[Rfam]
Nucleotides: 121
Base pairs, nucleotide, nucleotide: 007026008025009024010023011022012021055072056071057070058069
Number, partner (000 for none) and nucleotide at each position: 001000c002000g003000u004000a005000g006000c007026a008025g009024c010023u011022g012021a013000a014000u015000c016000a017000g018000a019000g020000a021012u022011u023010g024009g025008c026007u027000g028000u029000u030000a031000c032000a033000a034000a035000u036000u037000a038000u039000a040000a041000a042000c043000u044000u045000a046000c047000u048000c049000u050000u051000a052000u053000c054000a055072g056071g057070a058069g059000a060000g061000a062000a063000u064000u065000a066000u067000g068000u069058c070057u071056c072055u073000g074000a075000a076000u077000g078000c079000a080000g081000a082000a083000a084000c085000u086000a087000a088000a089000g090000c091000a092000g093000c094000a095000a096000u097000c098000g099000u100000u101000g102000c103000a104000g105000a106000a107000u108000a109000c110000g111000c112000a113000c114000a115000a116000u117000g118000u119000g120000a121000a